[Rfam]
RNA sequence: GUCAGCAACCCCGCUCUAAAGAGACGGGGCAUCUAGCUUGCUAGAAGCCUUUUGACUUUAGGAAUAGCUGACCAGUUUAAGUCUUAACUGACUACGUUCUAAUCGUCACGACACCUACGGAUGCGUAGCUAGUCCGUCCACUAUAGGUGGGUAUCCAUUCAGCAAUGUCGUUAGUCAUUAAACAUCUUUAUCGGGUUAAGGAAGUGUGGCUAACCUAACAAGCGUUUAGAACAUUAACGAAGCUAACAUCAC
Number, nucleotide and partner (000 for none) at each position: 001g072002u071003c070004a069005g068006c067007a000008a065009c000010c029011c028012c026013g025014c000015u022016c021017u000018a000019a000020a000021g016022a015023g000024a000025c013026g012027g000028g011029g010030c047031a000032u045033c044034u043035a042036g041037c000038u000039u000040g000041c036042u035043a034044g033045a032046a000047g030048c000049c000050u000051u000052u000053u000054g000055a000056c000057u000058u000059u000060a000061g000062g000063a000064a000065u008066a000067g006068c005069u004070g003071a002072c001073c000074a000075g238076u237077u236078u000079a234080a093081g092082u091083c090084u000085u000086a000087a000088c000089u000090g083091a082092c081093u080094a000095c000096g232097u231098u230099c229100u228101a227102a226103u000104c224105g223106u222107c000108a000109c000110g000111a168112c167113a000114c000115c162116u161117a000118c000119g160120g159121a158122u157123g000124c000125g000126u245127a244128g243129c000130u000131a000132g000133u000134c000135c000136g000137u000138c000139c000140a000141c000142u000143a000144u000145a000146g000147g000148u000149g000150g000151g000152u000153a000154u000155c000156c000157a122158u121159u120160c119161a116162g115163c000164a000165a000166u000167g112168u111169c000170g214171u213172u212173a211174g210175u209176c208177a207178u206179u000180a000181a000182a205183c204184a000185u202186c201187u200188u199189u198190a197191u000192c000193g000194g000195g000196u000197u190198a189199a188200g187201g186202a185203a000204g183205u182206g178207u177208g176209g175210c174211u173212a172213a171214c170215c000216u000217a000218a000219c000220a000221a000222g106223c105224g104225u000226u102227u101228a100229g099230a098231a097232c096233a000234u079235u000236a077237a076238c075239g000240a000241a000242g000243c128244u127245a126246a000247c000248a000249u000250c000251a000252c000